[Rfam]
RNA sequence: CCAUUAGGAGAUGAAGAGUUUAACUCUUAUAUCCUCACCGGUCUUGGUCCUGACUACAACCCCCUCGUGACGUCCAUCGUGACGUGCGUCGAGCCGAUCUCCUUCACUGAACUUCAAGCUCAAAUCCUGAGCUUUGAGC
Numbered sequence: 001c002c003a004u005u006a007g008g009a010g011a012u013g014a015a016g017a018g019u020u021u022a023a024c025u026c027u028u029a030u031a032u033c034c035u036c037a038c039c040g041g042u043c044u045u046g047g048u049c050c051u052g053a054c055u056a057c058a059a060c061c062c063c064c065u066c067g068u069g070a071c072g073u074c075c076a077u078c079g080u081g082a083c084g085u086g087c088g089u090c091g092a093g094c095c096g097a098u099c100u101c102c103u104u105c106a107c108u109g110a111a112c113u114u115c116a117a118g119c120u121c122a123a124a125u126c127c128u129g130a131g132c133u134u135u136g137a138g139c
Stems, first nucleotide, its partner, number of pairs: 004138002007135002088108001091105003
RNA: Small nucleolar RNA Z247